Shown here is a 149-nucleotide sequence from Jejuibacter calystegiae, a member of the family "Group II catalytic intron D1-D4-7". The source organism's lineage runs through Bacteria, Pseudomonadota, Gammaproteobacteria, Enterobacteriaceae and Jejuibacter. It scores 106 bits against the family's covariance model. The pairing is the family consensus, mapped onto this sequence. On this family, see Chu et al., EMBO J 2001: "Control of branch-site choice by a group II intron". Group II introns are found in rRNA, tRNA and mRNA of organelles in fungi, plants and protists, and also in mRNA in bacteria.

[Rfam]
RNA sequence: CCUGCUGUCUCACCAGCAGUUCCCUACCCGGCUGUGCGUUGAGAGUAAUUUCAGGGUUCAAAGCGUCGGGGACCACGUAGCCACGGAUUAUCCGUAAGAGCGAGCCGUGAGGCUCAAUCCGAAACUGCCAGCCGCAGGCGGUGAAGGCG
Numbered sequence: 001c002c003u004g005c006u007g008u009c010u011c012a013c014c015a016g017c018a019g020u021u022c023c024c025u026a027c028c029c030g031g032c033u034g035u036g037c038g039u040u041g042a043g044a045g046u047a048a049u050u051u052c053a054g055g056g057u058u059c060a061a062a063g064c065g066u067c068g069g070g071g072a073c074c075a076c077g078u079a080g081c082c083a084c085g086g087a088u089u090a091u092c093c094g095u096a097a098g099a100g101c102g103a104g105c106c107g108u109g110a111g112g113c114u115c116a117a118u119c120c121g122a123a124a125c126u127g128c129c130a131g132c133c134g135c136a137g138g139c140g141g142u143g144a145a146g147g148c149g
Stems, first nucleotide, its partner, number of pairs: 002019006028069005033060002036057002039054006083095005098119002105112002124142006